[Rfam]
Nucleotides: 586
Stems, first nucleotide, its partner, number of pairs: 024055001025053005035042002065072002076103004086094002106308004115140002118137002121134005143250002145247004150242004155233003158229004163223007173189001175188004192196001199209002259280007285302005342349002365376004410568002413565009426475001429474002433470003479550006571586004
Number, partner (000 for none) and nucleotide at each position: 001000g002000g003000a004000u005000c006000u007000c008000a009000a010000a011000u012000c013000a014000g015000a016000c017000a018000a019000g020000a021000c022000g023000a024055c025053c026052c027051g028050c029049u030000g031000a032000a033000u034000u035042u036041a037000a038000g039000c040000a041036u042035a043000u044000a045000a046000u047000u048000a049029a050028g051027c052026g053025g054000a055024g056000g057000a058000a059000a060000a061000g062000a063000a064000a065072c066071u067000a068000a069000c070000a071066a072065g073000g074000a075000u076103u077102c078101c079100c080000c081000u082000a083000g084000u085000a086094g087093c088000g089000g090000c091000g092000a093087g094086c095000g096000a097000a098000g099000c100079g101078g102077g103076a104000a105000g106308a107307g108306c109305c110000c111000a112000a113000u114000a115140u116139g117000a118137a119136a120000a121134g122133c123132c124131u125130g126000c127000u128000u129000g130125c131124a132123g133122g134121c135000g136119u137118u138000g139116u140115a141000g142000u143250u144249g145247a146246g147245c148244g149000u150242c151241c152240u153239c154000g155233g156232g157231u158229u159228g160227u161226c162000a163223g164222u165221g166220u167219g168218g169217g170000c171000a172000a173189g174000u175188c176187g177186c178185a179000u180000g181000g182000a183000a184000a185178u186177g187176c188175g189173c190000g191000c192196c193000g194000u195000g196192g197000a198000g199209g200208g201000u202000g203000a204000g205000a206000g207000c208200c209199c210000c211000g212000u213000c214000c215000a216000a217169c218168u219167c220166a221165c222164a223163c224000a225000g226161g227160a228159c229158a230000u231157a232156u233155c234000c235000g236000c237000a238000c239153g240152a241151g242150g243000g244148c245147g246146u247145u248000u249144c250143a251000g252000a253000u254000g255000a256000g257000u258000c259280g260279g261278g262277u263276a264275g265274c266000u267000u268000g269000g270000g271000a272000a273000u274265g275264c276263u277262g278261c279260u280259c281000u282000a283000a284000u285302c286301g287300g288299u289298g290000g291000u292000a293000a294000a295000u296000c297000u298289c299288a300287u301286c302285g303000a304000a305109g306108g307107c308106u309000a310000a311000a312000u313000a314000g315000c316000g317000g318000c319000u320000g321000g322000a323000g324000a325000c326000c327000g328000a329000u330000a331000g332000c333000g334000a335000a336000c337000a338000a339000g340000u341000a342349c343348c344000g345000u346000g347000a348343g349342g350000g351000a352000a353000a354000g355000a356000u357000g358000a359000c360000a361000a362000g363000c364000a365376c366375u367374u368373u369000g370000a371000a372000a373368a374367g375366a376365g377000g378000g379000u380000g381000a382000a383000a384000a385000g386000a387000g388000c389000c390000u391000g392000a393000a394000a395000c396000c397000g398000u399000c400000a401000c402000g403000g404000g405000g406000g407000a408000a409000g410568c411567g412000g413565a414564u415563c416562g417561c418560g419559u420558u421557g422000g423000a424000u425000u426475g427000a428000u429474g430473g431000g432000c433470g434469c435468u436000u437000g438000c439000g440000u441000g442000u443000u444000c445000a446000g447000c448000c449000c450000u451000u452000u453000g454000g455000g456000u457000g458000c459000a460000u461000u462000g463000g464000c465000g466000c467000a468435a469434g470433u471000u472000g473430c474429u475426u476000a477000u478000c479550c480549g481548c482547u483546g484545u485000g486000a487000g488000u489000u490000u491000u492000c493000g494000g495000g496000g497000g498000u499000c500000g501000a502000u503000u504000u505000u506000g507000g508000a509000c510000c511000c512000c513000u514000g515000g516000g517000g518000a519000c520000u521000g522000a523000g524000g525000g526000c527000u528000c529000c530000c531000u532000u533000u534000u535000a536000c537000a538000g539000g540000u541000g542000a543000g544000g545484a546483c547482a548481g549480c550479g551000g552000a553000g554000u555000g556000a557421c558420g559419a560418c561417g562416c563415g564414a565413u566000a567411c568410g569000a570000c571586c572585c573584g574583u575000c576000u577000u578000g579000a580000a581000a582000c583574a584573c585572g586571g